[Rfam]
RNA: A. fumigatus sRNA Afu_309
RNA sequence: AUGAACCGAACAAACACGGAUCUGUGUUCAGCGAUCCUGAUCGUGAUUGAGCUUGUCUCUUUUGCGUUUUGGUUGAUUGCUGGACAGUUCGACGACCCAAGGAGGCACCAUUUUUCACGCUUGGUGUCAUUAUUUUCCGGUCGACAGAUCUCAGAUUAAAUGUUGGCAUUGGGGUGUUCACUCCAGUCUUGAGCUCCCUCUGGUGAGCUCGGCUGGAGAUCCCGGUGUCGACGGCGUCAUAUUCCUGUUCCCUUCACCGAUCUGGCCGUUGGCCGAUGAGGUUAGGGAGAAACCAUGGCUUGCCAACAUCU
Numbered sequence: 001a002u003g004a005a006c007c008g009a010a011c012a013a014a015c016a017c018g019g020a021u022c023u024g025u026g027u028u029c030a031g032c033g034a035u036c037c038u039g040a041u042c043g044u045g046a047u048u049g050a051g052c053u054u055g056u057c058u059c060u061u062u063u064g065c066g067u068u069u070u071g072g073u074u075g076a077u078u079g080c081u082g083g084a085c086a087g088u089u090c091g092a093c094g095a096c097c098c099a100a101g102g103a104g105g106c107a108c109c110a111u112u113u114u115u116c117a118c119g120c121u122u123g124g125u126g127u128c129a130u131u132a133u134u135u136u137c138c139g140g141u142c143g144a145c146a147g148a149u150c151u152c153a154g155a156u157u158a159a160a161u162g163u164u165g166g167c168a169u170u171g172g173g174g175u176g177u178u179c180a181c182u183c184c185a186g187u188c189u190u191g192a193g194c195u196c197c198c199u200c201u202g203g204u205g206a207g208c209u210c211g212g213c214u215g216g217a218g219a220u221c222c223c224g225g226u227g228u229c230g231a232c233g234g235c236g237u238c239a240u241a242u243u244c245c246u247g248u249u250c251c252c253u254u255c256a257c258c259g260a261u262c263u264g265g266c267c268g269u270u271g272g273c274c275g276a277u278g279a280g281g282u283u284a285g286g287g288a289g290a291a292a293c294c295a296u297g298g299c300u301u302g303c304c305a306a307c308a309u310c311u
Stems, first nucleotide, its partner, number of pairs: 018151008026085006033078004037072004042066005049059003093143005101128002104125001106123001162229001164227001168226006185214004191210006197203002233304003236299005249288005256282003264274004